[Rfam]
RNA sequence: UGUCGAGCCGUGUUAACCGGACGCGACAGGGAUGGUGGAUGCAGAGCUUUUUCCGGUUUCUCUCUGCAGCCAACGAAACGGCACACGAGCGCCCCACCUGUCCGGCUC
Numbered sequence: 001u002g003u004c005g006a007g008c009c010g011u012g013u014u015a016a017c018c019g020g021a022c023g024c025g026a027c028a029g030g031g032a033u034g035g036u037g038g039a040u041g042c043a044g045a046g047c048u049u050u051u052u053c054c055g056g057u058u059u060c061u062c063u064c065u066g067c068a069g070c071c072a073a074c075g076a077a078a079c080g081g082c083a084c085a086c087g088a089g090c091g092c093c094c095c096a097c098c099u100g101u102c103c104g105g106c107u108c
Stems, first nucleotide, its partner, number of pairs: 006107004011023004025102006034093004040068007069082003
Description:
Rhizobiales sRNA Atu_At1: a 108-nucleotide RNA from Terrihabitans soli. Taxonomically the source falls in Terrihabitans (Bacteria, Pseudomonadota, Alphaproteobacteria, Hyphomicrobiales). It scores 108 bits against the family's covariance model. By type it is a small RNA.